[Rfam]
RNA sequence: AUCUUAUCAAGAGUGGCGGAGGGACUGGCCCUGUGAAGCCCAGCAACCGGAAUAUUGGUCCAUUUACCAACAUAUUCUACGGUGCUAAUUCCUGCAGCCUAUUUUUAGGCUGAUAGAUGAGAG
Numbered sequence: 001a002u003c004u005u006a007u008c009a010a011g012a013g014u015g016g017c018g019g020a021g022g023g024a025c026u027g028g029c030c031c032u033g034u035g036a037a038g039c040c041c042a043g044c045a046a047c048c049g050g051a052a053u054a055u056u057g058g059u060c061c062a063u064u065u066a067c068c069a070a071c072a073u074a075u076u077c078u079a080c081g082g083u084g085c086u087a088a089u090u091c092c093u094g095c096a097g098c099c100u101a102u103u104u105u106u107a108g109g110c111u112g113a114u115a116g117a118u119g120a121g122a123g
Base pairs, nucleotide, nucleotide: 002122003121004120005119006118007117008116013041015040016039017038021031022030023029025094027092028091042086043085044084045083047082048081049078050077051076052075053074054073055072090115095112096111097110098109099108100107
A member of the RNA family "SAM riboswitch aptamer (S box leader)" from Clostridium sp. SM-530-WT-3G, 123 nucleotides long.